[Rfam]
RNA sequence: UCCUCGCUCAAAGAAUCGCAUUCAAAGCUCACACACAAAGAAGAUCUCUUCUUUCACACUCUCGCUUUGGGAGAAAGUCCCCGGACAUCCUGCGCUCUGGUCCUCCAGAGUUUUUGAAGCCAGGCACUGCGGAAACGCGCCGCCAUAGAAGCAAUUCGAUAGCGGCUUACGCCCUACUCUUCCCGGCCUCUGCUCGCCACCCGACAGCUUCGCUGGUUACAAUGGGGUGUGCGGUCUGGGGUUGGAGGGGAGAAGGGGGACUUCGGUCUUCCUUGUAUCGGGUUGCCUUUCGUCGUUGUUCGAUAGUCAUGCGAUUGCCCUUGUUCCUUGUGGACGGGGUAACUCAAUGGGGCUCAUUCUUGAGGCGAGG
Number, nucleotide and partner (000 for none) at each position: 001u000002c370003c369004u368005c367006g366007c365008u363009c362010a361011a360012a000013g000014a316015a315016u314017c313018g312019c311020a000021u000022u071023c069024a068025a067026a066027g065028c064029u000030c000031a000032c000033a000034c000035a000036c000037a000038a053039a052040g051041a050042a049043g048044a000045u000046c000047u000048c043049u042050u041051c040052u039053u038054u000055c000056a000057c000058a000059c000060u000061c000062u000063c000064g028065c027066u026067u025068u024069g023070g000071g022072a000073g000074a000075a000076a354077g353078u000079c352080c351081c350082c349083g000084g000085a000086c000087a000088u000089c000090c000091u000092g000093c000094g000095c110096u109097c108098u107099g106100g105101u000102c000103c000104u000105c100106c099107a098108g097109a096110g095111u000112u000113u000114u000115u000116g000117a000118a000119g000120c000121c000122a000123g000124g000125c000126a000127c000128u000129g000130c000131g000132g000133a000134a000135a000136c000137g000138c000139g000140c000141c000142g000143c000144c000145a000146u000147a000148g000149a000150a000151g000152c000153a000154a000155u000156u000157c000158g000159a000160u000161a000162g000163c000164g000165g000166c000167u000168u000169a000170c000171g000172c000173c000174c000175u000176a000177c000178u000179c000180u000181u000182c000183c000184c000185g000186g000187c000188c000189u000190c000191u000192g000193c000194u000195c000196g000197c000198c000199a000200c000201c000202c000203g000204a000205c000206a000207g000208c000209u000210u000211c000212g000213c000214u000215g000216g000217u000218u000219a000220c000221a000222a000223u000224g000225g000226g000227g000228u000229g287230u000231g000232c000233g000234g000235u282236c281237u280238g279239g278240g000241g276242u275243u000244g273245g271246a270247g269248g268249g000250g000251a000252g000253a000254a000255g264256g263257g262258g000259g000260a000261c000262u257263u256264c255265g000266g000267u000268c248269u247270u246271c245272c000273u244274u000275g242276u241277a000278u239279c238280g237281g236282g235283u000284u000285g000286c000287c229288u000289u000290u000291c000292g000293u000294c000295g000296u000297u000298g000299u000300u000301c000302g000303a000304u000305a000306g000307u000308c000309a000310u000311g019312c018313g017314a016315u015316u014317g000318c339319c338320c337321u336322u000323g000324u000325u000326c000327c000328u000329u000330g000331u000332g000333g000334a000335c000336g321337g320338g319339g318340u000341a000342a000343c000344u000345c000346a000347a000348u000349g082350g081351g080352g079353c077354u076355c000356a000357u000358u000359c000360u011361u010362g009363a008364g000365g007366c006367g005368a004369g003370g002

Source information: Shown here is a 370-nucleotide sequence from Penicillium canariense, a member of the family "RNase MRP". The family's RNA type in Rfam is ribozyme. Its Rfam clan is "RNaseP clan".